[Rfam]
Rfam assigns this 179-nucleotide RNA sequence from Cyclopterus lumpus to the family "Small nucleolar RNA SNORA81". A search with the family's covariance model found it, with a score of 68 bits.
RNA sequence: CCCUUCUCACUAAAGCACCCUGCUAAAACUGCAGGAGCCAAGCCUUACGGGUUUAGCUCAUGUGGCCGUGUAAGCAUGGGUACACCAGGGAAGGAGAUUGAAGGCACAGUGUUUGAAAUGAGGCUAUGGGGGGACCUUAAUGUCCAGUGUCCGUCGGCUCAAUAUCCUGUGUUACACAU
Numbered sequence: 001c002c003c004u005u006c007u008c009a010c011u012a013a014a015g016c017a018c019c020c021u022g023c024u025a026a027a028a029c030u031g032c033a034g035g036a037g038c039c040a041a042g043c044c045u046u047a048c049g050g051g052u053u054u055a056g057c058u059c060a061u062g063u064g065g066c067c068g069u070g071u072a073a074g075c076a077u078g079g080g081u082a083c084a085c086c087a088g089g090g091a092a093g094g095a096g097a098u099u100g101a102a103g104g105c106a107c108a109g110u111g112u113u114u115g116a117a118a119u120g121a122g123g124c125u126a127u128g129g130g131g132g133g134a135c136c137u138u139a140a141u142g143u144c145c146a147g148u149g150u151c152c153g154u155c156g157g158c159u160c161a162a163u164a165u166c167c168u169g170u171g172u173u174a175c176a177c178a179u
Stems, first nucleotide, its partner, number of pairs: 018080002021076004028069002031066001035059001037057002040054005103173007111165001126150001128148001132145003
The base pairs follow the family's consensus structure, which was predicted with WAR. For this family Rfam cites "A novel experimental approach for systematic identification of box H/ACA snoRNAs from eukaryotes" (Gu et al., Nucleic Acids Res, 2005). Its family is annotated with RNA processing and nucleolus in the Gene Ontology.